[Rfam]
RNA sequence: GCUGCCUCUAGAAUAACCAGACGUCGAAGAAAGGAAACUUCAAAUACGACGCCGUUUGGUUCAGACAGGGGCAUACAGCAAGUAAACCGAAGCAGUUUGAGGGAAAGGGACGCUUUUCAUGUAGCUCUUCCUGUUCCUUUCCUAGAUAGCUUUGGAUAUUU
Numbered sequence: 001g002c003u004g005c006c007u008c009u010a011g012a013a014u015a016a017c018c019a020g021a022c023g024u025c026g027a028a029g030a031a032a033g034g035a036a037a038c039u040u041c042a043a044a045u046a047c048g049a050c051g052c053c054g055u056u057u058g059g060u061u062c063a064g065a066c067a068g069g070g071g072c073a074u075a076c077a078g079c080a081a082g083u084a085a086a087c088c089g090a091a092g093c094a095g096u097u098u099g100a101g102g103g104a105a106a107g108g109g110a111c112g113c114u115u116u117u118c119a120u121g122u123a124g125c126u127c128u129u130c131c132u133g134u135u136c137c138u139u140u141c142c143u144a145g146a147u148a149g150c151u152u153u154g155g156a157u158a159u160u161u
Base pairs, nucleotide, nucleotide: 003073004072005071006070007069009068015061016060017059018058019057020056021055022054025051026050088154089153090152091151092150093149100132101131102130104129107126108125110122111121112120135146136145
Dot-bracket structure: ..(((((.(.....((((((((..((.......................))..))))))))......))))))..............((((((......(((.(..((.(((.......)))..))..))))..((........))..)))))).......

Record summary:
A member of the RNA family "Small nucleolar RNA snoR138" from Juglans regia, 161 nucleotides long. Gene Ontology terms of the family: RNA processing and nucleolus. Pairs were carried over by alignment from the consensus structure, which was predicted with mfold. The family's RNA type in Rfam is H/ACA-box small nucleolar RNA.